A member of the RNA family "Metazoan signal recognition particle RNA" from Sphagnurus paluster, 290 nucleotides long.
Lineage of the source: Eukaryota > Dikarya > Agaricomycetes > Agaricales > Sphagnurus.
The family is grouped with related families in Rfam's "SRP clan".
The family's RNA type in Rfam is non-coding RNA gene.
RNA sequence: ACAGGGAGCGUGGCGUCUCCUGUAAUCCGGCUUCUCGGAGGUCGGGAUCGGAGGAUGGUUUGAGGUCGGGGGUCCUGGUGCUGAGUGGCCCAUGUUGACUGGACGUCCACACUAAGCCCGGUGUUGAUAUGGAUCCCCCGAAGGAGUUCGGGGGAUGCAGGUUAACUAAGGAGGGGCGAACCGGGCCAGGGGGGAAACCCAGCAGCCAAAAGUCCCCGCAUCGGGCAGUAGUGGGAUAGCGGCUGGGAGUGGGCGCUUAGUAUCAGCCCGACCAAUAAAACCAGACCCGU
Dot-bracket structure: ((.(((((........)))))....(((........))).))......(((....((((((..(((((((....(((((((((((((.(((((.(...((((.(((((.(((((.(((((((((((((.((.((((((((((....)))))))))).)).)))).(...)..(((((......(((....(((....)))....)))....))))).)))))))))..)))))))...))).))))).)))))))))))))))))))))))))....))))))...))).